[Rfam]
RNA: Plant signal recognition particle RNA
RNA sequence: GCCGAGCUUAGUAAUAUGAGCUUAUAACCCAAGUAGGGGCAUUAAGGUGGCACUGGACUGAGUGCUUGUCAAACUAGUUGAGUCUAGCAUGGCUAUUUAUUGGCUUGCUCGUUUCAACUAGAGAGUUGGGCCAUGUGGCCUAAGCGAAAGCAGCAGGGGCCUUGUGGUUCUUAGGCGGGGGGAAAUGCGUUAGGCUAGUUUCACAGAGCAAUGACAAUAUCCUACUCUCUGUAGGGAAAGGAUAACAAGGUAGUGCUCUCUUAGCUCAUUAAAGCUAGGUGAGCUAGUCUUAAUUGGACAAUCACCUAU
Numbered sequence: 001g002c003c004g005a006g007c008u009u010a011g012u013a014a015u016a017u018g019a020g021c022u023u024a025u026a027a028c029c030c031a032a033g034u035a036g037g038g039g040c041a042u043u044a045a046g047g048u049g050g051c052a053c054u055g056g057a058c059u060g061a062g063u064g065c066u067u068g069u070c071a072a073a074c075u076a077g078u079u080g081a082g083u084c085u086a087g088c089a090u091g092g093c094u095a096u097u098u099a100u101u102g103g104c105u106u107g108c109u110c111g112u113u114u115c116a117a118c119u120a121g122a123g124a125g126u127u128g129g130g131c132c133a134u135g136u137g138g139c140c141u142a143a144g145c146g147a148a149a150g151c152a153g154c155a156g157g158g159g160c161c162u163u164g165u166g167g168u169u170c171u172u173a174g175g176c177g178g179g180g181g182g183a184a185a186u187g188c189g190u191u192a193g194g195c196u197a198g199u200u201u202c203a204c205a206g207a208g209c210a211a212u213g214a215c216a217a218u219a220u221c222c223u224a225c226u227c228u229c230u231g232u233a234g235g236g237a238a239a240g241g242a243u244a245a246c247a248a249g250g251u252a253g254u255g256c257u258c259u260c261u262u263a264g265c266u267c268a269u270u271a272a273a274g275c276u277a278g279g280u281g282a283g284c285u286a287g288u289c290u291u292a293a294u295u296g297g298a299c300a301a302u303c304a305c306c307u308a309u
Stems, first nucleotide, its partner, number of pairs: 001040003004023007028037002045307005052302001054300002058296001061291002064288003068284002072280001074278006080267004086261002089259001091257002094255002100253003104249004109241002112239004119231008128170008137161005144154002171175001177222003181218001188213003195206002